[Rfam]
RNA sequence: CGUUGCGUCACAGUCGUUCUUCACUAGCUAGCUUUAUGCUCCACGCAUCCCGCUAAAGCUGCCAGUUGAAGAGCUGUUGUGAGUAAC
Number, nucleotide and partner (000 for none) at each position: 001c000002g000003u000004u000005g084006c083007g000008u000009c000010a080011c079012a078013g000014u000015c000016g000017u073018u072019c071020u070021u069022c068023a000024c000025u000026a000027g062028c061029u000030a060031g059032c058033u057034u056035u055036a054037u000038g000039c000040u000041c000042c000043a000044c000045g000046c000047a000048u000049c000050c000051c000052g000053c000054u036055a035056a034057a033058g032059c031060u030061g028062c027063c000064a000065g000066u000067u000068g022069a021070a020071g019072a018073g017074c000075u000076g000077u000078u012079g011080u010081g000082a000083g006084u005085a000086a000087c000

A member of the RNA family "mir-22 microRNA precursor family" from Muraenolepis orangiensis, 87 nucleotides long. For this family Rfam cites "Identification of novel genes coding for small expressed RNAs" (Lagos-Quintana et al., Science, 2001). Gene Ontology terms of the family: RISC complex and miRNA-mediated post-transcriptional gene silencing. A search with the family's covariance model found it, with a score of 71 bits. The family's consensus secondary structure was predicted with RNAalifold.